RNA: L31-Actinobacteria ribosomal protein leader
Organism: Georgenia yuyongxinii
RNA sequence: UCGGCUUCCGGUUCACGUGCGCGGCUCGCGUGCGACCCGGGGCA
Numbered sequence: 001u002c003g004g005c006u007u008c009c010g011g012u013u014c015a016c017g018u019g020c021g022c023g024g025c026u027c028g029c030g031u032g033c034g035a036c037c038c039g040g041g042g043c044a
Stems, first nucleotide, its partner, number of pairs: 004043001006042001008040004016034008